[Rfam]
RNA sequence: CUGCAACCAAUUAAGCCAACCAUGCUCAUUUAUUUCCUCACAGGGGCCCAGUGUGCAAUGGCUGCAAACAGCAGCCUCCCUGGUAGAGUAUGCAGCCUGCUGCAUAUAUGAGUUGUUCUUAAGGGACCUUGGAGACAGUC
Numbered sequence: 001c002u003g004c005a006a007c008c009a010a011u012u013a014a015g016c017c018a019a020c021c022a023u024g025c026u027c028a029u030u031u032a033u034u035u036c037c038u039c040a041c042a043g044g045g046g047c048c049c050a051g052u053g054u055g056c057a058a059u060g061g062c063u064g065c066a067a068a069c070a071g072c073a074g075c076c077u078c079c080c081u082g083g084u085a086g087a088g089u090a091u092g093c094a095g096c097c098u099g100c101u102g103c104a105u106a107u108a109u110g111a112g113u114u115g116u117u118c119u120u121a122a123g124g125g126a127c128c129u130u131g132g133a134g135a136c137a138g139u140c
Stems, first nucleotide, its partner, number of pairs: 002057004019052002025046003082128003093115004098110001
A member of the RNA family "Small nucleolar RNA SNORA70" from Prolemur simus, 140 nucleotides long. About the family: snoRNA U70 seems to be exclusive to mammals and is a member of the H/ACA class of snoRNA which contain H (ANANNA) and ACA box motifs. H/ACA box snoRNAs are involved in the conversion of uridines to pseudouridines (5-ribosyluracil) a constituent of structural RNAs (transfer, ribosomal, small nuclear, and small nucleolar). The family's consensus secondary structure was predicted with PFOLD. For this family Rfam cites "Pseudouridine in RNA: what, where, how, and why" (Charette and Gray, IUBMB Life, 2000). The family has 43 seed sequences and 5,173 matches in Rfam 15.1. Its family is annotated with RNA processing and nucleolus in the Gene Ontology.